[Rfam]
Potassium channel RNA editing signal: a 114-nucleotide RNA. About the family: This family represents a group of sequences related to the human potassium channel Kv1.1 hairpin element which directs the efficient modification of an adenosine to inosine by an adenosine deaminase acting on RNA (ADAR). The family has 85 seed sequences and 14,095 matches in Rfam 15.1. It is one of the family's seed sequences. Rfam links the family to the GO term adenosine to inosine editing. The base pairs follow the family's consensus structure, which is taken from published work.

RNA sequence: GUUGGCUAUGGGGACAUAUAUCCUAAGACAUUGCUGGGUAAAAUUAUUGGGGGCCUUUGUUGCAUUGCUGGUGUGUUAGUUAUAGCAUUGCCUAUACCAAUUAUAGUGAAUAAC
Numbered sequence: 001g002u003u004g005g006c007u008a009u010g011g012g013g014a015c016a017u018a019u020a021u022c023c024u025a026a027g028a029c030a031u032u033g034c035u036g037g038g039u040a041a042a043a044u045u046a047u048u049g050g051g052g053g054c055c056u057u058u059g060u061u062g063c064a065u066u067g068c069u070g071g072u073g074u075g076u077u078a079g080u081u082a083u084a085g086c087a088u089u090g091c092c093u094a095u096a097c098c099a100a101u102u103a104u105a106g107u108g109a110a111u112a113a114c
Stems, first nucleotide, its partner, number of pairs: 001114002004111001007108003011104001013102002019096003037077004049063001051061001